The family of this 207-nucleotide RNA from Weissella oryzae is "T-box leader". The source organism's lineage runs through Bacteria, Bacilli, Lactobacillales, Lactobacillaceae and Weissella oryzae.
[Rfam]
RNA sequence: UUUAUUACUUUGAAUGACCUAGUAGGUUGGUUAAUCUUUUCAGCGAUUAUGGGUGGGUGUGAGCCAUAGAUGAUGACAAACUGAAUUUCAGUCAGGAGUAGGAUGGUUGAUAAGGCUGUCCCGACUUAGCCCGCGUUAUAGGGCCCCUAAGAACAGGGCAAUUGACUGUUAAAGUAGGGUGGUACCACGUUUAUAGACGUCCCUUUG
Number, nucleotide and partner (000 for none) at each position: 001u000002u000003u000004a000005u000006u000007a099008c098009u000010u000011u000012g000013a000014a000015u094016g093017a092018c091019c000020u000021a000022g000023u000024a000025g082026g081027u080028u079029g000030g077031u000032u000033a000034a000035u000036c072037u000038u070039u000040u000041c000042a000043g000044c000045g000046a000047u069048u068049a067050u066051g065052g064053g000054u000055g000056g000057g000058u000059g000060u000061g000062a000063g000064c052065c051066a050067u049068a048069g047070a038071u000072g036073a000074u000075g000076a000077c030078a000079a028080a027081c026082u025083g000084a000085a000086u000087u000088u000089c000090a000091g018092u017093c016094a015095g000096g000097a000098g008099u007100a000101g000102g120103a119104u118105g117106g116107u115108u114109g000110a000111u000112a000113a000114g108115g107116c106117u105118g104119u103120c102121c000122c135123g134124a000125c000126u000127u000128a000129g000130c000131c000132c000133g000134c123135g122136u000137u000138a000139u000140a000141g000142g000143g000144c000145c000146c000147c000148u000149a000150a000151g000152a170153a169154c168155a167156g166157g000158g000159c000160a000161a000162u000163u000164g000165a000166c156167u155168g154169u153170u152171a000172a000173a000174g000175u000176a204177g203178g202179g201180u000181g000182g000183u000184a000185c000186c000187a200188c199189g198190u197191u196192u000193a000194u000195a000196g191197a190198c189199g188200u187201c179202c178203c177204u176205u000206u000207g000

From the family's description: Uncharged tRNA acts as the effector for transcription antitermination of genes in the T-box leader family. T-boxes are found upstream of many aminoacyl-tRNA synthetase genes and some amino acid biosynthetic genes usually in Gram-positive bacteria. A search with the family's covariance model found it, with a score of 95 bits.